[Rfam]
RNA sequence: UCAUGAACUAUGUAAAAUCACAAGACAUCACUUAGAUGGGCUAUAGAAAGUAAGAUAGGAG
Numbered sequence: 001u002c003a004u005g006a007a008c009u010a011u012g013u014a015a016a017a018u019c020a021c022a023a024g025a026c027a028u029c030a031c032u033u034a035g036a037u038g039g040g041c042u043a044u045a046g047a048a049a050g051u052a053a054g055a056u057a058g059g060a061g
Stems, first nucleotide, its partner, number of pairs: 021040001026038004
RNA: Plastid-ndhJ 3UTR RNA